This 133-nucleotide RNA sequence from Tetrahymena elliotti belongs to the Rfam family "Tetrahymena snoRNA TtnuHACA14". Its family is annotated with RNA processing and nucleolus in the Gene Ontology. For this family Rfam cites "Experimental identification and analysis of macronuclear non-coding RNAs from the ciliate Tetrahymena thermophila" (Andersen and Nielsen, Nucleic Acids Res, 2012). The family's RNA type in Rfam is H/ACA-box small nucleolar RNA. Rfam's curators put it in the seed alignment.

[Rfam]
RNA sequence: UAAGCGAGAACUAUUCAUAGUUUGUUCAGACUAGUUCUGUAUGAGCAAAACAGUUUUCGCAAAAAUACCCUGAGUUUCUUACUACCCAUCUAGCACAAAUAUUGCUGAUGGUAAUUUCCGAAUUCAGACAUCU
Numbered sequence: 001u002a003a004g005c006g007a008g009a010a011c012u013a014u015u016c017a018u019a020g021u022u023u024g025u026u027c028a029g030a031c032u033a034g035u036u037c038u039g040u041a042u043g044a045g046c047a048a049a050a051c052a053g054u055u056u057u058c059g060c061a062a063a064a065a066u067a068c069c070c071u072g073a074g075u076u077u078c079u080u081a082c083u084a085c086c087c088a089u090c091u092a093g094c095a096c097a098a099a100u101a102u103u104g105c106u107g108a109u110g111g112u113a114a115u116u117u118c119c120g121a122a123u124u125c126a127g128a129c130a131u132c133u
Stems, first nucleotide, its partner, number of pairs: 004060009020046006027039004070127008086111005092106004